[Rfam]
RNA sequence: GCGGAAAACCGAAUACUGCCCUAGACAGCAGGUGCAAUGCUUAAUGGCGUUUCGACGCCGCCCGCCGAGGUAGACCGACAGAAAAGACAGCUUUGUGCUGUUUGUUGGCUGCUGUGUCUAGAAGACACAGCUUUUUUGUGUAGUAC
Numbered sequence: 001g002c003g004g005a006a007a008a009c010c011g012a013a014u015a016c017u018g019c020c021c022u023a024g025a026c027a028g029c030a031g032g033u034g035c036a037a038u039g040c041u042u043a044a045u046g047g048c049g050u051u052u053c054g055a056c057g058c059c060g061c062c063c064g065c066c067g068a069g070g071u072a073g074a075c076c077g078a079c080a081g082a083a084a085a086g087a088c089a090g091c092u093u094u095g096u097g098c099u100g101u102u103u104g105u106u107g108g109c110u111g112c113u114g115u116g117u118c119u120a121g122a123a124g125a126c127a128c129a130g131c132u133u134u135u136u137u138g139u140g141u142a143g144u145a146c
Base pairs, nucleotide, nucleotide: 028065029064031062032061033060034040035039111131112130113129114128115127116126117125118124119123
RNA: Ribosomal protein L10 leader
Organism: Roseiflexaceae bacterium